A member of the RNA family "MIR2655 microRNA precursor family" from Trifolium subterraneum, 252 nucleotides long. Its family is annotated with miRNA-mediated post-transcriptional gene silencing and RISC complex in the Gene Ontology.

RNA sequence: CCCUUAUUUUUUAAAAGUUUCAAGUUAGUCCCUUAUCUUUUUUUUAGGUUUCAAGUUAGUCCCUUCCGUCAAUUUUUUUACUGUUACCGUUAAAUUUUAACACGUGUCAUCUGUCCAAGUGUGCCACGUGUCCAAAUUAGUUUGCCACAUGUCAAAAUUUAACGAAAAUAGUUAAAAAAUUGACGGAAGGGACCAACUUGAAACCUAAAAUAAAGAUAAGGGACCAACUUGAAACUUUUAAAAGAUAAGAGA
Numbered sequence: 001c002c003c004u005u006a007u008u009u010u011u012u013a014a015a016a017g018u019u020u021c022a023a024g025u026u027a028g029u030c031c032c033u034u035a036u037c038u039u040u041u042u043u044u045u046a047g048g049u050u051u052c053a054a055g056u057u058a059g060u061c062c063c064u065u066c067c068g069u070c071a072a073u074u075u076u077u078u079u080a081c082u083g084u085u086a087c088c089g090u091u092a093a094a095u096u097u098u099a100a101c102a103c104g105u106g107u108c109a110u111c112u113g114u115c116c117a118a119g120u121g122u123g124c125c126a127c128g129u130g131u132c133c134a135a136a137u138u139a140g141u142u143u144g145c146c147a148c149a150u151g152u153c154a155a156a157a158u159u160u161a162a163c164g165a166a167a168a169u170a171g172u173u174a175a176a177a178a179a180u181u182g183a184c185g186g187a188a189g190g191g192a193c194c195a196a197c198u199u200g201a202a203a204c205c206u207a208a209a210a211u212a213a214a215g216a217u218a219a220g221g222g223a224c225c226a227a228c229u230u231g232a233a234a235c236u237u238u239u240a241a242a243a244g245a246u247a248a249g250a251g252a
Stems, first nucleotide, its partner, number of pairs: 003249006023229003028224002031221010042210002045207003
A search with the family's covariance model found it, with a score of 126 bits. The organism belongs to Trifolium, within Eukaryota.